[Rfam]
RNA sequence: AAGUAAAUUUUCUAAGUGUCUGAUGAUGAAUUUCAUAGGGCAGAUUCUGAGGUGAAAAUUGUAUUCAUCAUUGAUAGUCCUAUUAUGGAAUCUGAAGACACUUGGAAACCG
Numbered sequence: 001a002a003g004u005a006a007a008u009u010u011u012c013u014a015a016g017u018g019u020c021u022g023a024u025g026a027u028g029a030a031u032u033u034c035a036u037a038g039g040g041c042a043g044a045u046u047c048u049g050a051g052g053u054g055a056a057a058a059u060u061g062u063a064u065u066c067a068u069c070a071u072u073g074a075u076a077g078u079c080c081u082a083u084u085a086u087g088g089a090a091u092c093u094g095a096a097g098a099c100a101c102u103u104g105g106a107a108a109c110c111g
Stems, first nucleotide, its partner, number of pairs: 013104009030091007037081004043075001046074002049071001051069006
Small nucleolar RNA SNORD90: a 111-nucleotide sequence from Canis lupus. By type it is a C/D-box small nucleolar RNA. On this family, see Huttenhofer et al., EMBO J 2001: "RNomics: an experimental approach that identifies 201 candidates for novel, small, non-messenger RNAs in mouse". Rfam links the family to the GO terms nucleolus and RNA processing. The family's consensus secondary structure was predicted with RNAalifold. Rfam's curators write: snoRNA HBII-295 belongs to the family of C/D snoRNAs. It is the human orthologue of the mouse MBII-295 and has no identified RNA target. The organism belongs to Canis lupus, within Eukaryota. Rfam 15.1 lists 545 matches to the family in 524 species.